Small nucleolar RNA SNORD98: a 66-nucleotide RNA from Neogobius melanostomus.
Gene Ontology terms of the family: RNA processing and nucleolus.
The organism belongs to Neogobius, within Eukaryota.
By type it is a C/D-box small nucleolar RNA.
The family has 10 seed sequences and 571 matches in Rfam 15.1.
The match comes from Rfam's covariance-model search (59 bits).

RNA sequence: AAACAAUGAUGUUUUAUUCCUAUUCCAUUUCUUAAUACUAAAUGUGGAAAAUUCCAAGCUGAGUUU
Dot-bracket structure: ((((..........................................................))))
Numbered sequence: 001a002a003a004c005a006a007u008g009a010u011g012u013u014u015u016a017u018u019c020c021u022a023u024u025c026c027a028u029u030u031c032u033u034a035a036u037a038c039u040a041a042a043u044g045u046g047g048a049a050a051a052u053u054c055c056a057a058g059c060u061g062a063g064u065u066u
Stems, first nucleotide, its partner, number of pairs: 001066004